The record is a 133-nucleotide RNA from Metabacillus harenarius, which matches "pan motif" in Rfam.
A search with the family's covariance model found it, with a score of 55 bits.
It is annotated as a cis-regulatory element.
Lineage of the source: Bacteria > Bacillati > Bacillota > Caryophanales > Metabacillus.
The family's consensus secondary structure is taken from published work.
RNA sequence: UGGGUAGUAUCUUUAUGAACUACACCACAGAAGGAGUUAUUUUAUUACAUUUGUUAACACACUAGGUUCGUCUAUGUGUGUUAUAACUUAACUUUAUGAUCUGCCUUGAUCCAAGAAGGACUAGGACAGAGGG
Number, nucleotide and partner (000 for none) at each position: 001u027002g026003g025004g023005u022006a021007g020008u019009a000010u018011c017012u000013u000014u000015a000016u000017g011018a010019a008020c007021u006022a005023c004024a000025c003026c002027a001028c000029a000030g000031a000032a000033g000034g000035a000036g000037u000038u000039a000040u000041u000042u000043u000044a000045u000046u000047a000048c000049a000050u000051u000052u000053g000054u000055u000056a000057a000058c000059a000060c000061a000062c000063u000064a000065g000066g000067u000068u000069c000070g000071u000072c000073u000074a000075u000076g000077u000078g000079u000080g000081u000082u000083a000084u000085a000086a000087c000088u000089u000090a000091a000092c000093u000094u000095u000096a000097u000098g000099a000100u000101c129102u128103g127104c125105c124106u123107u000108g121109a000110u120111c119112c118113a000114a000115g000116a000117a000118g112119g111120a110121c108122u000123a106124g105125g104126a000127c103128a102129g101130a000131g000132g000133g000